Rfam assigns this 116-nucleotide sequence from Bacillus sp. DNRA2 to the family "epsC RNA". Pairs were carried over by alignment from the consensus structure, which is taken from published work. Rfam 15.1 lists 450 matches to the family in 334 species. Taxonomically the source falls in Bacillus (Bacteria, Bacillati, Bacilli, Caryophanales).
RNA sequence: CGGUGAUGCCUCCUGGCCGUUAAAAAUGGAGACACUCGGCUGUCCUGUGGGAUAUAGAUUUAUAGCCUUAGAUACAUGUUAUCAAGAGGAUGGUGUGAGGGUGGGUUAGAUGCCCA
Dot-bracket structure: ((((..[[.[[[[..))))........]]]].]]((((((((((((..(((.((((....)))).)))..((((.....))))...)))))))).))))..(((((.....)))))
Notes:
Rfam classes the family as a cis-regulatory element.